[Rfam]
RNA sequence: CUUCACCGAGCCGAGCCACAGGGGCGCGGUGCCGCCGGUGGUGGCUUCGGCUCGGUCCUGGCCGUACGUGGCGAGGAGCGCCUGGGCCUC
Numbered sequence: 001c002u003u004c005a006c007c008g009a010g011c012c013g014a015g016c017c018a019c020a021g022g023g024g025c026g027c028g029g030u031g032c033c034g035c036c037g038g039u040g041g042u043g044g045c046u047u048c049g050g051c052u053c054g055g056u057c058c059u060g061g062c063c064g065u066a067c068g069u070g071g072c073g074a075g076g077a078g079c080g081c082c083u084g085g086g087c088c089u090c
Stems, first nucleotide, its partner, number of pairs: 014046006047085002053080002058075002062071003

Description
This 90-nucleotide RNA from Streptomyces alboflavus belongs to the Rfam family "ASpks TB sRNA". A search with the family's covariance model found it, with a score of 58 bits.